[Rfam]
RNA sequence: UCAGCGAAACGGCAAACCCUCCGCAAGGAGGGGACGCAAAGCCACGGGACCCACGACGGUCAGCCGGGCCACCGAA
Numbered sequence: 001u002c003a004g005c006g007a008a009a010c011g012g013c014a015a016a017c018c019c020u021c022c023g024c025a026a027g028g029a030g031g032g033g034a035c036g037c038a039a040a041g042c043c044a045c046g047g048g049a050c051c052c053a054c055g056a057c058g059g060u061c062a063g064c065c066g067g068g069c070c071a072c073c074g075a076a
Stems, first nucleotide, its partner, number of pairs: 012037002017032006041069003045066003048061003
The record is a 76-nucleotide RNA sequence from Cellulomonas marina, which matches "c-di-GMP-I riboswitch aptamer" in Rfam.
The family's consensus secondary structure is taken from published work.
The organism belongs to Cellulomonas, within Bacteria.